Clostridiales-1 RNA: a 172-nucleotide RNA from Eubacterium sp. CAG:248.

RNA sequence: UAAUACCAGGGUCGAAAAUACACAAAGCCGUUCGUGCUCGCACGAAAAAGGCUUUGUGUAUUUGCGACCCGCCAAACAUGAGAAUGGAGCGAUUUACGAAGUAAAUCAGCGGAAUUCGAAUGUUUGAAGAAUUGCGAGAGCAGCGAAGCAGCGGAGCAAUUCGUAGGUAUUA
Numbered sequence: 001u002a003a004u005a006c007c008a009g010g011g012u013c014g015a016a017a018a019u020a021c022a023c024a025a026a027g028c029c030g031u032u033c034g035u036g037c038u039c040g041c042a043c044g045a046a047a048a049a050g051g052c053u054u055u056g057u058g059u060a061u062u063u064g065c066g067a068c069c070c071g072c073c074a075a076a077c078a079u080g081a082g083a084a085u086g087g088a089g090c091g092a093u094u095u096a097c098g099a100a101g102u103a104a105a106u107c108a109g110c111g112g113a114a115u116u117c118g119a120a121u122g123u124u125u126g127a128a129g130a131a132u133u134g135c136g137a138g139a140g141c142a143g144c145g146a147a148g149c150a151g152c153g154g155a156g157c158a159a160u161u162c163g164u165a166g167g168u169a170u171u172a
Base pairs, nucleotide, nucleotide: 001172002171003170004169005168006167007166011068012067013066014065017062018061019060020059021058022057023056024055025054026053027052028051029050031048032047033044034043035042036041073126074125075124076123077122078121079120082117083116084115085114089110090109091107092106093105094104095103096102097101129162130161131160132159133158134157135156140152141151143149
It is annotated as a small RNA.